The family of this 507-nucleotide RNA from Enhygromyxa salina is "Saccharopolyspora sRNA 350". The organism belongs to Enhygromyxa, within Bacteria. A search with the family's covariance model found it, with a score of 146 bits. On this family, see Liu et al., PLoS One 2013: "Prediction and characterization of small non-coding RNAs related to secondary metabolites in Saccharopolyspora erythraea".
RNA sequence: CGGGCGGUGAACUGCCACUGGUCGUGAUCCUCGAGGAUCGCCUCGUAGCUGAAGUGAUCGCCGUCGGCGAGCACGUCGAUCACGCUCUCAUCGCCGUACUUGCCCUCACCGAUCCGCUCGACCUUGCCGUGGGCGAUGAGGCAGAUCGAGUCGGCGGGCUUGCCCGCCUCGACGAUCACCGACCCGGGCUUGAGGUCGUGCUGCACGAAGCGGUUGGCGAGGGCCGCGAGGGUCUCGAUGUCGUCGAAGCCCCGGAGCAUCGGCAGCUCGGCGAGCUCCUGAGGGAUCACCUGGACCUUGGUCCCGACGUUGGUGAAGGUCACGCGACCGUCGCCCACGGCGAAGGACAGGCGGCGGUUGACUCGGUACACACCGCCCGAGACAUCGAUCCACGGCAGCAGCUUGAGCAGCCAGCGCGAGGUGAUGCCCUGCAUCUGCGGCGGGGACUUGGUCGUGGUCGCGAGGUUGCGUGCGGCGGCGGUCGCCAGGCUCUGUUGUUGGGCCUCG
Numbered sequence: 001c002g003g004g005c006g007g008u009g010a011a012c013u014g015c016c017a018c019u020g021g022u023c024g025u026g027a028u029c030c031u032c033g034a035g036g037a038u039c040g041c042c043u044c045g046u047a048g049c050u051g052a053a054g055u056g057a058u059c060g061c062c063g064u065c066g067g068c069g070a071g072c073a074c075g076u077c078g079a080u081c082a083c084g085c086u087c088u089c090a091u092c093g094c095c096g097u098a099c100u101u102g103c104c105c106u107c108a109c110c111g112a113u114c115c116g117c118u119c120g121a122c123c124u125u126g127c128c129g130u131g132g133g134c135g136a137u138g139a140g141g142c143a144g145a146u147c148g149a150g151u152c153g154g155c156g157g158g159c160u161u162g163c164c165c166g167c168c169u170c171g172a173c174g175a176u177c178a179c180c181g182a183c184c185c186g187g188g189c190u191u192g193a194g195g196u197c198g199u200g201c202u203g204c205a206c207g208a209a210g211c212g213g214u215u216g217g218c219g220a221g222g223g224c225c226g227c228g229a230g231g232g233u234c235u236c237g238a239u240g241u242c243g244u245c246g247a248a249g250c251c252c253c254g255g256a257g258c259a260u261c262g263g264c265a266g267c268u269c270g271g272c273g274a275g276c277u278c279c280u281g282a283g284g285g286a287u288c289a290c291c292u293g294g295a296c297c298u299u300g301g302u303c304c305c306g307a308c309g310u311u312g313g314u315g316a317a318g319g320u321c322a323c324g325c326g327a328c329c330g331u332c333g334c335c336c337a338c339g340g341c342g343a344a345g346g347a348c349a350g351g352c353g354g355c356g357g358u359u360g361a362c363u364c365g366g367u368a369c370a371c372a373c374c375g376c377c378c379g380a381g382a383c384a385u386c387g388a389u390c391c392a393c394g395g396c397a398g399c400a401g402c403u404u405g406a407g408c409a410g411c412c413a414g415c416g417c418g419a420g421g422u423g424a425u426g427c428c429c430u431g432c433a434u435c436u437g438c439g440g441c442g443g444g445g446a447c448u449u450g451g452u453c454g455u456g457g458u459c460g461c462g463a464g465g466u467u468g469c470g471u472g473c474g475g476c477g478g479c480g481g482u483c484g485c486c487a488g489g490c491u492c493u494g495u496u497g498u499u500g501g502g503c504c505u506c507g
Base pairs, nucleotide, nucleotide: 006390007389008388011385015381019327021325022324025322026321027320028319029318031316032315037311039309040308042306045305048302049301050300051299052298054233055232058229059228060227061226063224064223065111066110067109075103077102078101079100082097083096084095086093117222118221122217123216127212130209131206133204134203135202138199140197143196150191154189155188156185157184158183160181161178162177165174166173235295236294240290241289243287244286245285251281254278256277257276258275260271261270262269329342330341331340332339353377354376355375356374357373391431392430394428395427396426397425399423400422403418407415437476438475440473442471444469446467447465448464449463451461452460477506478505480503482501484499486497487496488495